[Rfam]
RNA sequence: ACUACCAAAUUAGGUUCACAACCCAACCUUUCAUGCCAUUUGACAUAUGGAAUCAUUUUGGUCAAAUGGCAUGAAAGGUUGGGUUGUGAACCUAAUUUGGUAGUAAGCU
Numbered sequence: 001a002c003u004a005c006c007a008a009a010u011u012a013g014g015u016u017c018a019c020a021a022c023c024c025a026a027c028c029u030u031u032c033a034u035g036c037c038a039u040u041u042g043a044c045a046u047a048u049g050g051a052a053u054c055a056u057u058u059u060g061g062u063c064a065a066a067u068g069g070c071a072u073g074a075a076a077g078g079u080u081g082g083g084u085u086g087u088g089a090a091c092c093u094a095a096u097u098u099g100g101u102a103g104u105a106a107g108c109u
Base pairs, nucleotide, nucleotide: 002103003102004101005100006099012093013092014091015090016089017088018087019086020085021084022083023082024081025080026079027078028077029076030075031074032073033072034071035070036069037068038067039066041064042063043062044061